[Rfam]
RNA: MIR6274 microRNA precursor family
RNA sequence: AGAUAGCCUUUUUUGCUAUCCCCGACCAAUAACGUAAUGACACGUAGGAUAACUUUUUCAUGUGUCAUUAUGUUAUUGGUCGGGGAUAGCAAAAAGUGAUAUCC
Numbered sequence: 001a002g003a004u005a006g007c008c009u010u011u012u013u014u015g016c017u018a019u020c021c022c023c024g025a026c027c028a029a030u031a032a033c034g035u036a037a038u039g040a041c042a043c044g045u046a047g048g049a050u051a052a053c054u055u056u057u058u059c060a061u062g063u064g065u066c067a068u069u070a071u072g073u074u075a076u077u078g079g080u081c082g083g084g085g086a087u088a089g090c091a092a093a094a095a096g097u098g099a100u101a102u103c104c
Stems, first nucleotide, its partner, number of pairs: 002103004011094009021084025047058003